[Rfam]
RNA sequence: GGCAAUAAAAUUACCUUGUAAUAGGUGUAUUGGACCCGAGGGCAGUACUCGGCGCCUCCACCAUAUUUUUUGAUUGAUACGGGGGCGAGUAAGGAUCGACAUGCAUAGUAAAGAUGGUAGCUUUGCUCGGUUAGAUACCACCGCUAAGAGUUCACAAUUUAGAUGCAAACGAUAACUUUGCUGCUGAAGACAAUGUUGCAUUAGCUGCUUAA
Numbered sequence: 001g002g003c004a005a006u007a008a009a010a011u012u013a014c015c016u017u018g019u020a021a022u023a024g025g026u027g028u029a030u031u032g033g034a035c036c037c038g039a040g041g042g043c044a045g046u047a048c049u050c051g052g053c054g055c056c057u058c059c060a061c062c063a064u065a066u067u068u069u070u071u072g073a074u075u076g077a078u079a080c081g082g083g084g085g086c087g088a089g090u091a092a093g094g095a096u097c098g099a100c101a102u103g104c105a106u107a108g109u110a111a112a113g114a115u116g117g118u119a120g121c122u123u124u125g126c127u128c129g130g131u132u133a134g135a136u137a138c139c140a141c142c143g144c145u146a147a148g149a150g151u152u153c154a155c156a157a158u159u160u161a162g163a164u165g166c167a168a169a170c171g172a173u174a175a176c177u178u179u180g181c182u183g184c185u186g187a188a189g190a191c192a193a194u195g196u197u198g199c200a201u202u203a204g205c206u207g208c209u210u211a212a
Base pairs, nucleotide, nucleotide: 001127002126003125004124005123014117015116017114026105027104028103031101032100036052037051038050039049040048053087054086055085056084057083058082059081128143129142130141131140
The record is a 212-nucleotide sequence, which matches "permuted transfer-messenger RNA" in Rfam. Gene Ontology term of the family: RNA catabolic process. The family's RNA type in Rfam is non-coding RNA gene.